This 91-nucleotide RNA sequence from Salmonella enterica belongs to the Rfam family "Plasmid-encoded Shigella sRNA A". For this family Rfam cites "An integrated approach for finding overlooked genes in Shigella" (Peng et al., PLoS One, 2011). The family's consensus secondary structure was predicted with RNAfold. It scores 88 bits against the family's covariance model.

[Rfam]
RNA sequence: UGGCUGCGAAAAGAGUUUUAAUUUUUUAUGAGGCCGCCAGAUAUUACGGCCUCAGGCGACAGGCACAUGACGGAGAGAGAUUAUGUUUGAA
Numbered sequence: 001u002g003g004c005u006g007c008g009a010a011a012a013g014a015g016u017u018u019u020a021a022u023u024u025u026u027u028a029u030g031a032g033g034c035c036g037c038c039a040g041a042u043a044u045u046a047c048g049g050c051c052u053c054a055g056g057c058g059a060c061a062g063g064c065a066c067a068u069g070a071c072g073g074a075g076a077g078a079g080a081u082u083a084u085g086u087u088u089g090a091a
Stems, first nucleotide, its partner, number of pairs: 001065002004062003007058002013053003017049002019046004071089004076084001